RNA: CyVA-1 RNA
Organism: Iningainema tapete
RNA sequence: GCACUGGAUGGAUGUUAUGCCGCUGUGAUCCAUAGUCUUGCAUCGAAGGAGAGCGACGUCAGAUGCGAGAACAGUGC
Numbered sequence: 001g002c003a004c005u006g007g008a009u010g011g012a013u014g015u016u017a018u019g020c021c022g023c024u025g026u027g028a029u030c031c032a033u034a035g036u037c038u039u040g041c042a043u044c045g046a047a048g049g050a051g052a053g054c055g056a057c058g059u060c061a062g063a064u065g066c067g068a069g070a071a072c073a074g075u076g077c
Stems, first nucleotide, its partner, number of pairs: 001077006009032004037069008